[Rfam]
RNA sequence: AUGCGAUGAGUCGAUUUGGUCUUUGGACCAAAUUUACGCUGGGGAGGUCAUUAACGCAGGAGCGGACCUUGAUGACUUGUGUGAACCUUUUCAUCUCAUGGAAACAUGCCCCUGAACCUUCUUUCUUCGGAGAGAAGGUUUUUU
Numbered sequence: 001a002u003g004c005g006a007u008g009a010g011u012c013g014a015u016u017u018g019g020u021c022u023u024u025g026g027a028c029c030a031a032a033u034u035u036a037c038g039c040u041g042g043g044g045a046g047g048u049c050a051u052u053a054a055c056g057c058a059g060g061a062g063c064g065g066a067c068c069u070u071g072a073u074g075a076c077u078u079g080u081g082u083g084a085a086c087c088u089u090u091u092c093a094u095c096u097c098a099u100g101g102a103a104a105c106a107u108g109c110c111c112c113u114g115a116a117c118c119u120u121c122u123u124u125c126u127u128c129g130g131a132g133a134g135a136a137g138g139u140u141u142u143u144u
Stems, first nucleotide, its partner, number of pairs: 013035002016032001017030005041112004045069004055064003071095005097108004116139009